[Rfam]
RNA: mir-399 microRNA precursor family
Organism: Theobroma umbraticum
RNA sequence: AGAAGAAUAACAGCACAAUUCUCCUUUGGCAGAAAAUGUUGCACUUGUAGAAAAAGUGCUAUAUUAUCCGCCAAAGGAGAAUUGUCCUGCCAUUCAACU
Numbered sequence: 001a002g003a004a005g006a007a008u009a010a011c012a013g014c015a016c017a018a019u020u021c022u023c024c025u026u027u028g029g030c031a032g033a034a035a036a037u038g039u040u041g042c043a044c045u046u047g048u049a050g051a052a053a054a055a056g057u058g059c060u061a062u063a064u065u066a067u068c069c070g071c072c073a074a075a076g077g078a079g080a081a082u083u084g085u086c087c088u089g090c091c092a093u094u095c096a097a098c099u
Stems, first nucleotide, its partner, number of pairs: 005095004011089003015085005021079004027073004032068002035065001